[Rfam]
RNA sequence: AAAAAGGGCUUCUGUCCUGAGUGUCACACGUAGAGCAGCUUGAUUGCAUUACAUGCAGAAUCGACAUCAAGAGAUUUUGGAAGCAUAAUUUUUUGGUACUUGGGCAGCUGAUGAUAGUUGGUCUGGGUGCUGAG
Number, nucleotide and partner (000 for none) at each position: 001a000002a000003a000004a000005a000006g000007g000008g084009c083010u082011u081012c080013u026014g025015u000016c023017c000018u000019g000020a000021g000022u000023g016024u000025c014026a013027c055028a054029c000030g052031u051032a050033g049034a000035g047036c046037a045038g044039c000040u000041u000042g000043a000044u038045u037046g036047c035048a000049u033050u032051a031052c030053a000054u028055g027056c079057a078058g077059a076060a075061u074062c073063g000064a000065c000066a000067u000068c000069a000070a000071g000072a000073g062074a061075u060076u059077u058078u057079g056080g012081a011082a010083g009084c008085a000086u000087a000088a000089u000090u000091u000092u000093u000094u000095g000096g000097u000098a000099c000100u000101u000102g000103g131104g130105c129106a000107g128108c127109u126110g000111a124112u000113g123114a122115u121116a000117g000118u000119u000120g000121g115122u114123c113124u111125g000126g109127g108128u107129g105130c104131u103132g000133a000134g000
A member of the RNA family "U11 spliceosomal RNA" from Cnephaeus nilssonii, 134 nucleotides long.
By type it is a spliceosomal small nuclear RNA.